[Rfam]
RNA sequence: UCUGUGGAGCGUUACAUCAAACCGAAGUAGCUUCGGCAAAACGGGACGCGAUGAAGCAGAAA
Numbered sequence: 001u002c003u004g005u006g007g008a009g010c011g012u013u014a015c016a017u018c019a020a021a022c023c024g025a026a027g028u029a030g031c032u033u034c035g036g037c038a039a040a041a042c043g044g045g046a047c048g049c050g051a052u053g054a055a056g057c058a059g060a061a062a
Base pairs, nucleotide, nucleotide: 001060002059003058004057005056009049010048011047012046013045022044023043024042030037031036
Annotation
RAGATH-18 RNA: a 62-nucleotide RNA. Rfam describes the family as follows. Actinobacteria, Firmicutes, Fusobacteria, Thermotogae (1 example). The family's consensus secondary structure is taken from published work. It is one of the family's seed sequences. The family's RNA type in Rfam is small RNA.